A member of the RNA family "small nucleolar RNA snoR126" from Oryza brachyantha, 99 nucleotides long. It scores 74 bits against the family's covariance model. Rfam 15.1 lists 423 matches to the family in 200 species. The literature on the family includes a 2009 paper in Nucleic Acids Res by Chen and Wu, "Mining small RNA sequencing data: a new approach to identify small nucleolar RNAs in Arabidopsis". The source organism's lineage runs through Eukaryota, Embryophyta, Liliopsida, Oryzinae and Oryza.
[Rfam]
RNA sequence: UGGCUGUGAUGACAAAAGAAAAACUUCGUUUCUCGAUGCUGAGACUUGAUUUGUUCAAGGACCAAAAAUCGUGCUGACCUUUGUGCGUGUCUGAGCCAC
Numbered sequence: 001u002g003g004c005u006g007u008g009a010u011g012a013c014a015a016a017a018g019a020a021a022a023a024c025u026u027c028g029u030u031u032c033u034c035g036a037u038g039c040u041g042a043g044a045c046u047u048g049a050u051u052u053g054u055u056c057a058a059g060g061a062c063c064a065a066a067a068a069u070c071g072u073g074c075u076g077a078c079c080u081u082u083g084u085g086c087g088u089g090u091c092u093g094a095g096c097c098a099c
Base pairs, nucleotide, nucleotide: 001098002097003096004095